[Rfam]
RNA sequence: AGCAAAAUGAUGAAGAAUUAUUUUUUGUCUGAAACUGAUGUUGAUCUCUUGUUUCAUACAAGCCUUCAAAGUUCUCUGAUUGCU
Numbered sequence: 001a002g003c004a005a006a007a008u009g010a011u012g013a014a015g016a017a018u019u020a021u022u023u024u025u026u027g028u029c030u031g032a033a034a035c036u037g038a039u040g041u042u043g044a045u046c047u048c049u050u051g052u053u054u055c056a057u058a059c060a061a062g063c064c065u066u067c068a069a070a071g072u073u074c075u076c077u078g079a080u081u082g083c084u
Stems, first nucleotide, its partner, number of pairs: 001084005
The record is an 84-nucleotide RNA sequence from Cicer arietinum, which matches "Small nucleolar RNA R160" in Rfam. Its family is annotated with nucleolus and RNA processing in the Gene Ontology. Rfam 15.1 lists 799 matches to the family in 221 species. It scores 67 bits against the family's covariance model. Pairs were carried over by alignment from the consensus structure. snoR160 is a C/D box small nucleolar RNA, which acts as a methylation guide for 25S ribosomal RNA in plants. snoR160 has been alternatively named snoZ270 in rice. A reference for the family is Chen et al. (2003), "The high diversity of snoRNAs in plants: identification and comparative study of 120 snoRNA genes from Oryza sativa", Nucleic Acids Res. The family's RNA type in Rfam is C/D-box small nucleolar RNA.